[Rfam]
RNA sequence: UCUGUCUGGGGAAAGGCUCCUGUGCUGUUGACCUUGCCCAGUAAUGAGUGCAGCCUUGCAUGUGCGGGCAGCCCAAGCCUGACCUAAUGUAAAUUUGCAGAAGUCUCUCCUGGGAUUUGAAUUUACAGUAACAGGUGUGAGCAUUCUAGCAGCAGCCUGAUGAUCAUGUAUGAUAAUGCAAACAGGA
Numbered sequence: 001u002c003u004g005u006c007u008g009g010g011g012a013a014a015g016g017c018u019c020c021u022g023u024g025c026u027g028u029u030g031a032c033c034u035u036g037c038c039c040a041g042u043a044a045u046g047a048g049u050g051c052a053g054c055c056u057u058g059c060a061u062g063u064g065c066g067g068g069c070a071g072c073c074c075a076a077g078c079c080u081g082a083c084c085u086a087a088u089g090u091a092a093a094u095u096u097g098c099a100g101a102a103g104u105c106u107c108u109c110c111u112g113g114g115a116u117u118u119g120a121a122u123u124u125a126c127a128g129u130a131a132c133a134g135g136u137g138u139g140a141g142c143a144u145u146c147u148a149g150c151a152g153c154a155g156c157c158u159g160a161u162g163a164u165c166a167u168g169u170a171u172g173a174u175a176a177u178g179c180a181a182a183c184a185g186g187a
Base pairs, nucleotide, nucleotide: 004083005082006081008079009078015073016072017071018070019068020067021066022065024063025062027054028053029052030051033048034047096114098112100109101108122182123181124180126178127177129175130174132172133171138166139165140164142162143161144160145159149156150155
Dot-bracket structure: ...(((.((.....((((((((.((.((((..((............))..)))).......)).)))).))))....)).)))............(.(.((......))..).).......(((.((.((.((....(((.((((...((....))..)))).)))....)).)).)).))).....

About this RNA
Shown here is a 187-nucleotide RNA sequence from Otolemur garnettii, a member of the family "Small Cajal body specific RNA 16". Rfam's curators write: scaRNAs are a specific class of small nuclear RNAs which localise to the Cajal bodies and guide the modification of RNA polymerase II transcribed spliceosomal RNAs U1, U2, U4, U5 and U12. ACA47 belongs to the H/ACA box class of guide RNAs as it has the predicted hairpin-hinge-hairpin-tail structure, the conserved H/ACA-box motifs and is found associated with GAR1. ACA47 is predicted to guide the pseudouridylation of residue U5 of the U1 spliceosomal snRNA. It is annotated as a small Cajal body RNA. The family has 37 seed sequences and 790 matches in Rfam 15.1. Rfam links the family to the GO terms nucleolus and RNA processing.